A member of the RNA family "Guanidine-II riboswitch aptamer (mini-ykkC)" from Ixodes scapularis, 53 nucleotides long. Lineage of the source: Eukaryota > Bilateria > Arachnida > Ixodidae > Ixodes. Simpler in structure and has fewer highly conserved nucleotide positions than the ykkC-yxkD leader. Despite this each of its two stem-loop structures directly bind free guanidine. Therefore, mini-ykkC RNA motif represents a distinct class of guanidine-sensing RNAs. Its crystal structure was also determined.
RNA sequence: CCUAGAGGACGACCUCUCGGACGACUGCUAGGACGACCUCGAGGACGACCUCG
Numbered sequence: 001c002c003u004a005g006a007g008g009a010c011g012a013c014c015u016c017u018c019g020g021a022c023g024a025c026u027g028c029u030a031g032g033a034c035g036a037c038c039u040c041g042a043g044g045a046c047g048a049c050c051u052c053g
Base pairs, nucleotide, nucleotide: 001020002019004017005016006015007014008013040053041052042051043050044049